Description: This 73-nucleotide RNA sequence from Drosophila kikkawai belongs to the Rfam family "mir-318 microRNA precursor family". Pairs were carried over by alignment from the consensus structure, which was predicted with RNAalifold. Lineage of the source: Eukaryota > Eumetazoa > Protostomia > Allotriocarida > Sophophora. Its family is annotated with miRNA-mediated post-transcriptional gene silencing and RISC complex in the Gene Ontology.
[Rfam]
RNA sequence: UUUAUGGGAUACACACAGUUCAGUUUUGUCACAUUUUUCGAUCCUCAUCACUGGGCUUUGUUUAUCUCAUAAA
Numbered sequence: 001u002u003u004a005u006g007g008g009a010u011a012c013a014c015a016c017a018g019u020u021c022a023g024u025u026u027u028g029u030c031a032c033a034u035u036u037u038u039c040g041a042u043c044c045u046c047a048u049c050a051c052u053g054g055g056c057u058u059u060g061u062u063u064a065u066c067u068c069a070u071a072a073a
Stems, first nucleotide, its partner, number of pairs: 002072010013061002017057008027047002
Its Rfam clan is "mir-3 clan".